[Rfam]
RNA sequence: UCUCCCGCUUCACCUCCCUGAGCGGGUGCCUCGCACCAGCGAGGCAUUUUCACCCCCGACUACUCCCCUGGUCGGGGGUUUUUAUU
Numbered sequence: 001u002c003u004c005c006c007g008c009u010u011c012a013c014c015u016c017c018c019u020g021a022g023c024g025g026g027u028g029c030c031u032c033g034c035a036c037c038a039g040c041g042a043g044g045c046a047u048u049u050u051c052a053c054c055c056c057c058g059a060c061u062a063c064u065c066c067c068c069u070g071g072u073c074g075g076g077g078g079u080u081u082u083u084a085u086u
Stems, first nucleotide, its partner, number of pairs: 004026006028045007053078010
RNA: Burkholderia RNA 7 (anti-hemB)